[Rfam]
Notes:
Group II catalytic intron D1-D4-7: a 149-nucleotide RNA sequence. It is one of the family's seed sequences. Its family is annotated with Group II intron splicing in the Gene Ontology. The base pairs follow the family's consensus structure. The literature on the family includes a 2001 paper in EMBO J by Chu et al., "Control of branch-site choice by a group II intron".
RNA sequence: CCCGCUGUUCCGUCAGCGGUAGCCUACUAUAAGGUGCAUCUCCCGUGACUGGGUUGUGCUAAGCUUAUAGGACAAAGUACACUUUCCGAAAGGACAAGACUGAACCGUGAAGGAACGUCAACGGCGGUUAGUAUCAUACCGUCAAGUGG
Numbered sequence: 001c002c003c004g005c006u007g008u009u010c011c012g013u014c015a016g017c018g019g020u021a022g023c024c025u026a027c028u029a030u031a032a033g034g035u036g037c038a039u040c041u042c043c044c045g046u047g048a049c050u051g052g053g054u055u056g057u058g059c060u061a062a063g064c065u066u067a068u069a070g071g072a073c074a075a076a077g078u079a080c081a082c083u084u085u086c087c088g089a090a091a092g093g094a095c096a097a098g099a100c101u102g103a104a105c106c107g108u109g110a111a112g113g114a115a116c117g118u119c120a121a122c123g124g125c126g127g128u129u130a131g132u133a134u135c136a137u138a139c140c141g142u143c144a145a146g147u148g149g
Stems, first nucleotide, its partner, number of pairs: 002019006028069005033060006040053003083096001085094003098119003105112001124142005